Background
The family of this 196-nucleotide RNA sequence is "permuted transfer-messenger RNA". Pairs were carried over by alignment from the consensus structure, which is taken from published work. About the family: Bacterial tmRNA, also known as 10Sa RNA or SsrA, is named for its dual tRNA and mRNA-like properties. Its role is to liberate the mRNA from a stalled ribosome. On this family, see Williams and Bartel, RNA 1996: "Phylogenetic analysis of tmRNA secondary structure".
[Rfam]
RNA sequence: AUAGUCGUUGAUAGCAACAGAAAAGCUGAACAAGACGCGGGUUCGACUCCCGCCCACUCCACCCAUUUAAUUUUCAUGGGGUGGUCAUGGUAUCGAUUGGCAGACAAGUACGAAGCUGGAGAUUAUCGUCAGGAGUAGACGUUAAAAGCAAAUUAAACUAAACGCUAACGAUUCACGUUACGCCGUAGCAGCCUGA
Numbered sequence: 001a002u003a004g005u006c007g008u009u010g011a012u013a014g015c016a017a018c019a020g021a022a023a024a025g026c027u028g029a030a031c032a033a034g035a036c037g038c039g040g041g042u043u044c045g046a047c048u049c050c051c052g053c054c055c056a057c058u059c060c061a062c063c064c065a066u067u068u069a070a071u072u073u074u075c076a077u078g079g080g081g082u083g084g085u086c087a088u089g090g091u092a093u094c095g096a097u098u099g100g101c102a103g104a105c106a107a108g109u110a111c112g113a114a115g116c117u118g119g120a121g122a123u124u125a126u127c128g129u130c131a132g133g134a135g136u137a138g139a140c141g142u143u144a145a146a147a148g149c150a151a152a153u154u155a156a157a158c159u160a161a162a163c164g165c166u167a168a169c170g171a172u173u174c175a176c177g178u179u180a181c182g183c184c185g186u187a188g189c190a191g192c193c194u195g196a
Base pairs, nucleotide, nucleotide: 001126002125003124004123005122014116015115026103027102028101031099032098033097037053038052039051040050041049054084055083056082057081058080059079060078127141128140129139130138